[Rfam]
RNA sequence: CGCCAUAUUCGGGGAGUAACCACUGGGAUAUGGGGAAAUGACUUACUGUGGGAAGUGCUUGAGAUAGGUCAAAGGGAUGGCGAAGAUAGAUCCCUAAGCACGCAAAGACUGUCGGGU
Numbered sequence: 001c002g003c004c005a006u007a008u009u010c011g012g013g014g015a016g017u018a019a020c021c022a023c024u025g026g027g028a029u030a031u032g033g034g035g036a037a038a039u040g041a042c043u044u045a046c047u048g049u050g051g052g053a054a055g056u057g058c059u060u061g062a063g064a065u066a067g068g069u070c071a072a073a074g075g076g077a078u079g080g081c082g083a084a085g086a087u088a089g090a091u092c093c094c095u096a097a098g099c100a101c102g103c104a105a106a107g108a109c110u111g112u113c114g115g116g117u
Stems, first nucleotide, its partner, number of pairs: 001035001003033008022049002025046001040070006056100004073095006085113005
Description: The record is a 117-nucleotide sequence, which matches "Betaproteobacteria-1 RNA" in Rfam. Pairs were carried over by alignment from the consensus structure, which is taken from published work. By type it is a small RNA.